The family of this 102-nucleotide RNA from Rossellomorea aquimaris is "Purine riboswitch aptamer". The source organism's lineage runs through Bacteria, Bacillota, Bacilli, Bacillaceae and Rossellomorea. Gene Ontology term of the family: purine nucleobase biosynthetic process.
RNA sequence: AUAGAGUUCGUUAGCAUCCUUCGUAUAUCCUCGAUAAUAUGGUUCGAAAGUUUCUACCCGGUCACCGUAAAUGACUGGACUAUGAAGGCAGUGUUCUAUUUA
Numbered sequence: 001a002u003a004g005a006g007u008u009c010g011u012u013a014g015c016a017u018c019c020u021u022c023g024u025a026u027a028u029c030c031u032c033g034a035u036a037a038u039a040u041g042g043u044u045c046g047a048a049a050g051u052u053u054c055u056a057c058c059c060g061g062u063c064a065c066c067g068u069a070a071a072u073g074a075c076u077g078g079a080c081u082a083u084g085a086a087g088g089c090a091g092u093g094u095u096c097u098a099u100u101u102a
Stems, first nucleotide, its partner, number of pairs: 018088008031047004058078007